Pseudomonas sRNA P26: a 57-nucleotide RNA from Paraglaciecola arctica. Rfam classes the family as a non-coding RNA gene. From the family's description: This small RNA (sRNA) was computationally identified in the genome of the opportunistic pathogen Pseudomonas aeruginosa and its expression verified by northern blot analysis. P26 is conserved across many Gammaproteobacteria species and appears to be consistently located between the DNA directed RNA polymerase (beta subunit) and 50S ribosomal protein L7/L12 genes.

RNA sequence: AACCACAGAAUAUUAGCCUGAAAUGGCAUAGGCUGGUGACUUUUUAGUCACCAGCCU
Numbered sequence: 001a002a003c004c005a006c007a008g009a010a011u012a013u014u015a016g017c018c019u020g021a022a023a024u025g026g027c028a029u030a031g032g033c034u035g036g037u038g039a040c041u042u043u044u045u046a047g048u049c050a051c052c053a054g055c056c057u
Stems, first nucleotide, its partner, number of pairs: 016027003031056010